[Rfam]
RNA sequence: CUAUGCAGUAGAGGUGCACUUAAUAUCAGUAGUGAUCAGUAGGGUGAUGCCGCUGAGGGGUCAUGAAAGGAUUGAGUGCCGAAAUGGUGAGACCCAUCCCGGCUCGUCAUUGGGGCUGUUGCCGAACAGGAACAGCACUGCCAUGGUAUUUUCUAUCCCUAUGAUAGAGAUAAUUGACUGUGGAGCGCUACUAUUAGG
Numbered sequence: 001c002u003a004u005g006c007a008g009u010a011g012a013g014g015u016g017c018a019c020u021u022a023a024u025a026u027c028a029g030u031a032g033u034g035a036u037c038a039g040u041a042g043g044g045u046g047a048u049g050c051c052g053c054u055g056a057g058g059g060g061u062c063a064u065g066a067a068a069g070g071a072u073u074g075a076g077u078g079c080c081g082a083a084a085u086g087g088u089g090a091g092a093c094c095c096a097u098c099c100c101g102g103c104u105c106g107u108c109a110u111u112g113g114g115g116c117u118g119u120u121g122c123c124g125a126a127c128a129g130g131a132a133c134a135g136c137a138c139u140g141c142c143a144u145g146g147u148a149u150u151u152u153c154u155a156u157c158c159c160u161a162u163g164a165u166a167g168a169g170a171u172a173a174u175u176g177a178c179u180g181u182g183g184a185g186c187g188c189u190a191c192u193a194u195u196a197g198g
Stems, first nucleotide, its partner, number of pairs: 007192005016079009032064006083111009093101001112139002115136006122129001141183007